[Rfam]
RNA sequence: GGUUCAUCCCCGGGGGGCCGUGUAGGCGGCUGAGAGGUGCGGCGUUCCGCACGACCCGUAGAACCUGAUCCGGGUGAAGCCGGCGGAGGAAGCGGACGGCGUCACACA
Numbered sequence: 001g002g003u004u005c006a007u008c009c010c011c012g013g014g015g016g017g018c019c020g021u022g023u024a025g026g027c028g029g030c031u032g033a034g035a036g037g038u039g040c041g042g043c044g045u046u047c048c049g050c051a052c053g054a055c056c057c058g059u060a061g062a063a064c065c066u067g068a069u070c071c072g073g074g075u076g077a078a079g080c081c082g083g084c085g086g087a088g089g090a091a092g093c094g095g096a097c098g099g100c101g102u103c104a105c106a107c108a
Base pairs, nucleotide, nucleotide: 007095008094010092011058012057013056014055016052017030018029019028020027021026041047064089065088066087070083071082072081073080

This 108-nucleotide sequence from Sphingomonas montanisoli belongs to the Rfam family "TPP riboswitch aptamer (THI element)".
It scores 62 bits against the family's covariance model.
The family's consensus secondary structure is taken from published work.
About the family: Vitamin B(1) in its active form thiamin pyrophosphate (TPP) is an essential coenzyme that is synthesised by coupling of pyrimidine and thiazole moieties in bacteria.